[Rfam]
Nucleotides: 110
Base pairs, nucleotide, nucleotide: 006097007096008095009094010060011059012058013057015054016032017031018030019029020028039053041051042050066091067090068089072085073084074083075082
Number, partner (000 for none) and nucleotide at each position: 001000g002000g003000c004000c005000a006097u007096c008095c009094c010060c011059g012058g013057g014000g015054g016032a017031g018030c019029g020028c021000c022000g023000a024000u025000g026000c027000c028020g029019c030018g031017c032016u033000u034000g035000a036000g037000a038000g039053g040000a041051g042050g043000g044000c045000a046000g047000g048000a049000g050042c051041c052000c053039u054015c055000g056000a057013c058012c059011c060010g061000c062000u063000g064000a065000a066091c067090c068089u069000g070000a071000u072085c073084c074083g075082g076000u077000u078000g079000a080000c081000a082075c083074c084073g085072g086000c087000g088000g089068a090067g091066g092000g093000a094009g095008g096007g097006a098000g099000c100000g101000g102000c103000u104000u105000u106000c107000a108000c109000c110000a